[Rfam]
Rfam assigns this 585-nucleotide part of an RNA from Acinetobacter sp. ANC 4558 to the family "Bacterial small subunit ribosomal RNA". The family has 99 seed sequences and 42,628 matches in Rfam 15.1. A search with the family's covariance model found it, with a score of 1595 bits. Pairs were carried over by alignment from the consensus structure, which is taken from published work.

RNA sequence: UGACGGGGGCCCGCACAAGCGGUGGAGCAUGUGGUUUAAUUCGAUGCAACGCGAAGAACCUUACCUGGUCUUGACAUAGUAAGAACUUUCCAGAGAUGGAUUGGUGCCUUCGGGAACUUACAUACAGGUGCUGCAUGGCUGUCGUCAGCUCGUGUCGUGAGAUGUUGGGUUAAGUCCCGCAACGAGCGCAACCCUUUUCCUUAUUUGCCAGCACUUCGGGUGGGAACUUUAAGGAUACUGCCAGUGACAAACUGGAGGAAGGCGGGGACGACGUCAAGUCAUCAUGGCCCUUACGACCAGGGCUACACACGUGCUACAAUGGUCGGUACAAAGGGUUGCUACCUCGCGAGAGGAUGCUAAUCUCAAAAAGCCGAUCGUAGUCCGGAUUGGAGUCUGCAACUCGACUCCAUGAAGUCGGAAUCGCUAGUAAUCGCGGAUCAGAAUGCCGCGGUGAAUACGUUCCCGGGCCUUGUACACACCGCCCGUCACACCAUGGGAGUUUGUUGCACCAGAAGUAGGUAGUCUAACCGCAAGGAGGACGCUUACCACGGUGUGGCAGAUGACUGGGGUGAAGUCGUAACAAGG
Numbered sequence: 001u002g003a004c005g006g007g008g009g010c011c012c013g014c015a016c017a018a019g020c021g022g023u024g025g026a027g028c029a030u031g032u033g034g035u036u037u038a039a040u041u042c043g044a045u046g047c048a049a050c051g052c053g054a055a056g057a058a059c060c061u062u063a064c065c066u067g068g069u070c071u072u073g074a075c076a077u078a079g080u081a082a083g084a085a086c087u088u089u090c091c092a093g094a095g096a097u098g099g100a101u102u103g104g105u106g107c108c109u110u111c112g113g114g115a116a117c118u119u120a121c122a123u124a125c126a127g128g129u130g131c132u133g134c135a136u137g138g139c140u141g142u143c144g145u146c147a148g149c150u151c152g153u154g155u156c157g158u159g160a161g162a163u164g165u166u167g168g169g170u171u172a173a174g175u176c177c178c179g180c181a182a183c184g185a186g187c188g189c190a191a192c193c194c195u196u197u198u199c200c201u202u203a204u205u206u207g208c209c210a211g212c213a214c215u216u217c218g219g220g221u222g223g224g225a226a227c228u229u230u231a232a233g234g235a236u237a238c239u240g241c242c243a244g245u246g247a248c249a250a251a252c253u254g255g256a257g258g259a260a261g262g263c264g265g266g267g268a269c270g271a272c273g274u275c276a277a278g279u280c281a282u283c284a285u286g287g288c289c290c291u292u293a294c295g296a297c298c299a300g301g302g303c304u305a306c307a308c309a310c311g312u313g314c315u316a317c318a319a320u321g322g323u324c325g326g327u328a329c330a331a332a333g334g335g336u337u338g339c340u341a342c343c344u345c346g347c348g349a350g351a352g353g354a355u356g357c358u359a360a361u362c363u364c365a366a367a368a369a370g371c372c373g374a375u376c377g378u379a380g381u382c383c384g385g386a387u388u389g390g391a392g393u394c395u396g397c398a399a400c401u402c403g404a405c406u407c408c409a410u411g412a413a414g415u416c417g418g419a420a421u422c423g424c425u426a427g428u429a430a431u432c433g434c435g436g437a438u439c440a441g442a443a444u445g446c447c448g449c450g451g452u453g454a455a456u457a458c459g460u461u462c463c464c465g466g467g468c469c470u471u472g473u474a475c476a477c478a479c480c481g482c483c484c485g486u487c488a489c490a491c492c493a494u495g496g497g498a499g500u501u502u503g504u505u506g507c508a509c510c511a512g513a514a515g516u517a518g519g520u521a522g523u524c525u526a527a528c529c530g531c532a533a534g535g536a537g538g539a540c541g542c543u544u545a546c547c548a549c550g551g552u553g554u555g556g557c558a559g560a561u562g563a564c565u566g567g568g569g570u571g572a573a574g575u576c577g578u579a580a581c582a583a584g585g
Stems, first nucleotide, its partner, number of pairs: 001476002003473003007470007015460002019424005024317001026315008034306002040055004064301007077124002079121005086103001089100004105116001107114002127290002130288004136284002138279003141275001143273002148187006154163003166179004193267004198235006208224002212222003238258002241255005321376007333364003338357002343352003383414001388409007430452007479584001481581001484577002489571004494566003499561012515546006522540004528535002